[Rfam]
RNA: SAM-I/IV (S-adenosyl methionine) riboswitch aptamer
RNA sequence: GGUAUGCAUCUAGAAGUCACUUGGCGACAAGUGAUGGCAACCGAGCCCACCAGGCCACGGUGCCUCGCUGUAACGGGGAUGCGGCGCGACGAGCGCAAAAGAACUGGUGCUC
Numbered sequence: 001g002g003u004a005u006g007c008a009u010c011u012a013g014a015a016g017u018c019a020c021u022u023g024g025c026g027a028c029a030a031g032u033g034a035u036g037g038c039a040a041c042c043g044a045g046c047c048c049a050c051c052a053g054g055c056c057a058c059g060g061u062g063c064c065u066c067g068c069u070g071u072a073a074c075g076g077g078g079a080u081g082c083g084g085c086g087c088g089a090c091g092a093g094c095g096c097a098a099a100a101g102a103a104c105u106g107g108u109g110c111u112c
Stems, first nucleotide, its partner, number of pairs: 006082005015035001017034007036064003041060003045055002050106001084096004